[Rfam]
RNA sequence: AAGCAACACUCUGUGGCAAAUGUUAAAGUCUUUUGCCCCAAUUUUCGCUUGCUAGAUAAAACAAGCUUAACCUAUUCCAGUAAUUUCUUUGUGAGAUAUACUGUUAUAUAAGCUUGAACAUG
Numbered sequence: 001a002a003g004c005a006a007c008a009c010u011c012u013g014u015g016g017c018a019a020a021u022g023u024u025a026a027a028g029u030c031u032u033u034u035g036c037c038c039c040a041a042u043u044u045u046c047g048c049u050u051g052c053u054a055g056a057u058a059a060a061a062c063a064a065g066c067u068u069a070a071c072c073u074a075u076u077c078c079a080g081u082a083a084u085u086u087c088u089u090u091g092u093g094a095g096a097u098a099u100a101c102u103g104u105u106a107u108a109u110a111a112g113c114u115u116g117a118a119c120a121u122g
Stems, first nucleotide, its partner, number of pairs: 009047001012040002015037001017035004022030001063115007073108003078103004086096004